[Rfam]
RNA sequence: UCCACCGUGAGGUGGAAUCUGAAGGAAGCCGGCGACAAACUCCUGUACCGAGGAACACGAACCAUAUCAGGCACAAAUGGGGCGGAUGAGUCUGCUAUACAAGAUAAAGUCCAAUACUGCCCGAACCCCACAGUGUAAAUAUGGCGGCGAUAGGACGAAGGAGACAGUG
Numbered sequence: 001u002c003c004a005c006c007g008u009g010a011g012g013u014g015g016a017a018u019c020u021g022a023a024g025g026a027a028g029c030c031g032g033c034g035a036c037a038a039a040c041u042c043c044u045g046u047a048c049c050g051a052g053g054a055a056c057a058c059g060a061a062c063c064a065u066a067u068c069a070g071g072c073a074c075a076a077a078u079g080g081g082g083c084g085g086a087u088g089a090g091u092c093u094g095c096u097a098u099a100c101a102a103g104a105u106a107a108a109g110u111c112c113a114a115u116a117c118u119g120c121c122c123g124a125a126c127c128c129c130a131c132a133g134u135g136u137a138a139a140u141a142u143g144g145c146g147g148c149g150a151u152a153g154g155a156c157g158a159a160g161g162a163g164a165c166a167g168u169g
Stems, first nucleotide, its partner, number of pairs: 001016006030167001032165001036161001041155005046149001048147003062144005071136003078130005084112004090105004

The family of this 169-nucleotide sequence from Salisediminibacterium selenitireducens is "Group II catalytic intron D1-D4-3". It is one of the family's seed sequences. NCBI's taxonomy places the organism under Bacteria, Bacilli, Caryophanales, Bacillaceae, Salisediminibacterium selenitireducens.